Description: The record is a 70-nucleotide sequence from Tribolium castaneum, which matches "mir-12 microRNA precursor family" in Rfam. A reference for the family is Werren et al. (2010), "Functional and evolutionary insights from the genomes of three parasitoid Nasonia species", Science.
RNA sequence: AGGGUUUGAGUAUUACAUCAGGUACUGGUUCGGUUUUGAAAAACCGGUCCCUGAGUAACACUUACAUUCU
Dot-bracket structure: (((((...(((...((.(..((.((((((.............)))))).)).).))...)))...)))))
Numbered sequence: 001a002g003g004g005u006u007u008g009a010g011u012a013u014u015a016c017a018u019c020a021g022g023u024a025c026u027g028g029u030u031c032g033g034u035u036u037u038g039a040a041a042a043a044c045c046g047g048u049c050c051c052u053g054a055g056u057a058a059c060a061c062u063u064a065c066a067u068u069c070u
Stems, first nucleotide, its partner, number of pairs: 001070005009062003015056002018053001021051002024048006
Record summary
Pairs were carried over by alignment from the consensus structure, which was predicted with RNAalifold.